[Rfam]
RNA sequence: GCCGGGAAGAGGAAGAAAGAGACUGUCUAAGAGCCGUGAGAAUGGGAACAUGGAGGAAAGCAUGACUGUUUCUAUGUUUUCCCGGUGCCUCCCAUUCCUAUCGUUCUUAGGUGCUCCUUCCUCUUUCUUUGGCUU
Number, nucleotide and partner (000 for none) at each position: 001g000002c000003c000004g000005g000006g000007a000008a000009g126010a125011g124012g123013a122014a000015g120016a119017a118018a000019g000020a000021g116022a115023c000024u000025g000026u111027c110028u109029a108030a107031g106032a105033g104034c103035c000036g000037u100038g099039a000040g097041a096042a095043u094044g093045g092046g091047a090048a000049c087050a086051u085052g000053g083054a000055g082056g081057a080058a079059a078060g077061c076062a075063u074064g000065a000066c000067u000068g000069u000070u000071u000072c000073u000074a063075u062076g061077u060078u059079u058080u057081c056082c055083c053084g000085g051086u050087g049088c000089c000090u047091c046092c045093c044094a043095u042096u041097c040098c000099u038100a037101u000102c000103g034104u033105u032106c031107u030108u029109a028110g027111g026112u000113g000114c000115u022116c021117c000118u017119u016120c015121c000122u013123c012124u011125u010126u009127c000128u000129u000130u000131g000132g000133c000134u000135u000

Overview:
A member of the RNA family "MIR2118 microRNA precursor family" from Panicum virgatum, 135 nucleotides long. On this family, see Johnson et al., Genome Res 2009: "Clusters and superclusters of phased small RNAs in the developing inflorescence of rice".